[Rfam]
Source information: Rfam assigns this 384-nucleotide part of an RNA from Denitrovibrio acetiphilus to the family "Bacterial large subunit ribosomal RNA". The sequence is in the family's curated seed alignment. A reference for the family is Yusupov et al. (2001), "Crystal structure of the ribosome at 5.5 A resolution", Science. Pairs were carried over by alignment from the consensus structure, which is taken from published work. Its family is annotated with structural constituent of ribosome and ribosome in the Gene Ontology. Taxonomically the source falls in Denitrovibrio acetiphilus (Bacteria, Deferribacterota, Geovibrionaceae, Denitrovibrio).
RNA sequence: GAUAAAAUGGGUGAGAAACCCAUUCACCGAAAGUCUAAGGUUUCCACCGGCAGGGUAAUCCGCGGUGGGUUAGUCGGUCCCUAAGGCGAGGGCGAAAGCCGUAGUCGAUGGGAAACAGGUUAAUAUUCCUGUACCGGCAUAUGUGCGUUUGUACGAUGGAGUGACAAAGAAGGUUAGAUGGUCCGGGUGUUGGAUAUCCCGGUUUAAGCGUGUAGUCUGGGAGGAUAGGCAAAUCCGUUCUCCUAAGGAUGAGGCGUUACGACGAGCCCCGUAACAAGGGCGAAGCCAUUGAUACCAUGCUUUCGAGAAAAACUUCUAAGGAGUGCAUGUGCUGUCCGUACCGUAAACCGACACAGGUAGACGAGAAGAGAAUUCUAAGGUGUU
Numbered sequence: 001g002a003u004a005a006a007a008u009g010g011g012u013g014a015g016a017a018a019c020c021c022a023u024u025c026a027c028c029g030a031a032a033g034u035c036u037a038a039g040g041u042u043u044c045c046a047c048c049g050g051c052a053g054g055g056u057a058a059u060c061c062g063c064g065g066u067g068g069g070u071u072a073g074u075c076g077g078u079c080c081c082u083a084a085g086g087c088g089a090g091g092g093c094g095a096a097a098g099c100c101g102u103a104g105u106c107g108a109u110g111g112g113a114a115a116c117a118g119g120u121u122a123a124u125a126u127u128c129c130u131g132u133a134c135c136g137g138c139a140u141a142u143g144u145g146c147g148u149u150u151g152u153a154c155g156a157u158g159g160a161g162u163g164a165c166a167a168a169g170a171a172g173g174u175u176a177g178a179u180g181g182u183c184c185g186g187g188u189g190u191u192g193g194a195u196a197u198c199c200c201g202g203u204u205u206a207a208g209c210g211u212g213u214a215g216u217c218u219g220g221g222a223g224g225a226u227a228g229g230c231a232a233a234u235c236c237g238u239u240c241u242c243c244u245a246a247g248g249a250u251g252a253g254g255c256g257u258u259a260c261g262a263c264g265a266g267c268c269c270c271g272u273a274a275c276a277a278g279g280g281c282g283a284a285g286c287c288a289u290u291g292a293u294a295c296c297a298u299g300c301u302u303u304c305g306a307g308a309a310a311a312a313c314u315u316c317u318a319a320g321g322a323g324u325g326c327a328u329g330u331g332c333u334g335u336c337c338g339u340a341c342c343g344u345a346a347a348c349c350g351a352c353a354c355a356g357g358u359a360g361a362c363g364a365g366a367a368g369a370g371a372a373u374u375c376u377a378a379g380g381u382g383u384u
Base pairs, nucleotide, nucleotide: 006024007023008022009021010020011019025382026381027380028379033362034361035360036359039342040341044068045067046066047065048064049063053061054060075338076337077336080111081110085106086105087104089102091100092099093098115132116131117130118129119128135334136333137332138331139330140329141328142327143326144325145324154320158316159315160314161313162312166303167302168301169300172296173295174294177290178289179288180287181286183202184201185200186199187198204262205261208257209256210255211254215250216249217248220243221242222241223240224239225238226237228236229235266281267280268279269278348357349356364376365375366374367373
Dot-bracket structure: .....((((((.......))))))((((....((((..((...((((((...((.....)).))))))......(((..((...(((.(.(((....))).).)))...))...(((((........)))))..(((((((((((........(...(((((...((((..(((..(((((.(((((..........))))).((..((((...(((..(((((((.((.....)))))))))....)))...))))...))...((((........))))....)))))...)))...))))........)))))...)...))))))))))).)))..)).....((......)).)))).((((.....))))..))))..